A member of the RNA family "Streptomyces RNA 5676" from Streptomyces palmae, 125 nucleotides long. Pairs were carried over by alignment from the consensus structure. On this family, see Vockenhuber et al., RNA Biol 2011: "Deep sequencing-based identification of small non-coding RNAs in Streptomyces coelicolor". Identified by deep sequencing of transcriptome at the end of exponential growth phase. Appears longer on northern blot than sequencing transcript.

Nucleotides: 125
Base pairs, nucleotide, nucleotide: 004121005120006119007118009117010116018039019038020037021036022035023034024033025032026031042074043073044072045071047069049067050066051065053063054062076089077088078087079086094112095111096110097109098108099107100106101105
Number, partner (000 for none) and nucleotide at each position: 001000a002000g003000a004121u005120g006119a007118g008000a009117g010116a011000u012000a013000c014000a015000c016000c017000c018039c019038g020037c021036u022035c023034g024033c025032a026031g027000g028000g029000g030000a031026c032025u033024g034023c035022g036021a037020g038019c039018g040000a041000u042074g043073c044072c045071g046000a047069g048000u049067c050066g051065g052000c053063g054062c055000u056000u057000c058000c059000c060000c061000a062054g063053c064000u065051c066050c067049g068000g069047c070000c071045c072044g073043g074042u075000a076089g077088u078087g079086c080000c081000c082000u083000c084000g085000c086079g087078c088077a089076c090000a091000c092000c093000a094112c095111u096110g097109g098108a099107g100106c101105c102000u103000c104000c105101g106100g107099c108098u109097c110096c111095g112094g113000a114000u115000c116010u117009c118007c119006u120005c121004a122000c123000c124000g125000a